A member of the RNA family "STAXI RNA" from Xenorhabdus cabanillasii, 160 nucleotides long. The family's RNA type in Rfam is small RNA.
RNA sequence: UAGCGUAGUCAAACUUAUCAAUGAUCCGGUCGCUUGUGAGGAUCACCUUCGGGCAGCGACAGCAACACUCCUGUAGCCUGCAAGGGAGUACACCAUCGUGUGGUACAUCUGCGCCCCUUUGGAAGCAGAUAUCGUCAGUCUGAUGACGAUGAAGGUUGUU
Numbered sequence: 001u002a003g004c005g006u007a008g009u010c011a012a013a014c015u016u017a018u019c020a021a022u023g024a025u026c027c028g029g030u031c032g033c034u035u036g037u038g039a040g041g042a043u044c045a046c047c048u049u050c051g052g053g054c055a056g057c058g059a060c061a062g063c064a065a066c067a068c069u070c071c072u073g074u075a076g077c078c079u080g081c082a083a084g085g086g087a088g089u090a091c092a093c094c095a096u097c098g099u100g101u102g103g104u105a106c107a108u109c110u111g112c113g114c115c116c117c118u119u120u121g122g123a124a125g126c127a128g129a130u131a132u133c134g135u136c137a138g139u140c141u142g143a144u145g146a147c148g149a150u151g152a153a154g155g156u157u158g159u160u
Stems, first nucleotide, its partner, number of pairs: 001012001003010001023044005029060006046053002067089005073106003077103002090101003108129005116155004131150007